[Rfam]
RNA sequence: GGUCAAUAUAUGAUUCUACCUAAGACUCAGGUGGCGCAAGCCUUAAUAUCCUGCCGAGGAGUAAUGUACGGUUAUUCUCUCUGUGUCUUGGUGGACAUGGAGCUUUUUUAUUUUAAAA
Numbered sequence: 001g002g003u004c005a006a007u008a009u010a011u012g013a014u015u016c017u018a019c020c021u022a023a024g025a026c027u028c029a030g031g032u033g034g035c036g037c038a039a040g041c042c043u044u045a046a047u048a049u050c051c052u053g054c055c056g057a058g059g060a061g062u063a064a065u066g067u068a069c070g071g072u073u074a075u076u077c078u079c080u081c082u083g084u085g086u087c088u089u090g091g092u093g094g095a096c097a098u099g100g101a102g103c104u105u106u107u108u109u110a111u112u113u114u115a116a117a118a
Base pairs, nucleotide, nucleotide: 028053029052030051031050033042034041035040079102080101081100082099083098084097085096086095087094
Ribosomal protein L10 leader: a 118-nucleotide sequence from Ligilactobacillus apodemi. The match comes from Rfam's covariance-model search (74 bits). The family's RNA type in Rfam is cis-regulatory leader. NCBI's taxonomy places the organism under Bacteria, Bacillota, Bacilli, Lactobacillaceae, Ligilactobacillus apodemi. The base pairs follow the family's consensus structure, which was predicted with CMfinder.